S. pyogenes small RNA 779816: an 87-nucleotide RNA sequence from Streptococcus phage Javan33.
A search with the family's covariance model found it, with a score of 70 bits.
Taxonomically the source falls in Caudoviricetes (Viruses, Duplodnaviria, Heunggongvirae, Uroviricota).
RNA sequence: GUAAAGAGACCUACUGCUAAAGCAGGUUUCUCACUAUCCACAAUUGCCUUACGCUUGCACCGACCAAAGUUGAGCGUAGGGCUUUUU
Numbered sequence: 001g002u003a004a005a006g007a008g009a010c011c012u013a014c015u016g017c018u019a020a021a022g023c024a025g026g027u028u029u030c031u032c033a034c035u036a037u038c039c040a041c042a043a044u045u046g047c048c049u050u051a052c053g054c055u056u057g058c059a060c061c062g063a064c065c066a067a068a069g070u071u072g073a074g075c076g077u078a079g080g081g082c083u084u085u086u087u
Stems, first nucleotide, its partner, number of pairs: 005031008016023002046082011059070002
Pairs were carried over by alignment from the consensus structure, which was predicted with RNAalifold.